[Rfam]
RNA sequence: AUCUGCACACACGGGAGCUCGGUGUCACCGGGCUGAGAGGGCGGCUUUGGAGCUGCCGACCGUUGAACCUGAUCUGGGUAAUGCCAGCGUAGGGACUUCUGAAUGCGUGCAGA
Numbered sequence: 001a002u003c004u005g006c007a008c009a010c011a012c013g014g015g016a017g018c019u020c021g022g023u024g025u026c027a028c029c030g031g032g033c034u035g036a037g038a039g040g041g042c043g044g045c046u047u048u049g050g051a052g053c054u055g056c057c058g059a060c061c062g063u064u065g066a067a068c069c070u071g072a073u074c075u076g077g078g079u080a081a082u083g084c085c086a087g088c089g090u091a092g093g094g095a096c097u098u099c100u101g102a103a104u105g106c107g108u109g110c111a112g113a
Stems, first nucleotide, its partner, number of pairs: 006101002009098001011063004017033005040057007068093004074087004
The family of this 113-nucleotide sequence from Alicyclobacillus acidocaldarius is "TPP riboswitch aptamer (THI element)".
NCBI's taxonomy places the organism under Bacteria, Bacillati, Bacillota, Alicyclobacillus acidocaldarius, Alicyclobacillus acidocaldarius subsp. acidocaldarius.
Vitamin B(1) in its active form thiamin pyrophosphate (TPP) is an essential coenzyme that is synthesised by coupling of pyrimidine and thiazole moieties in bacteria.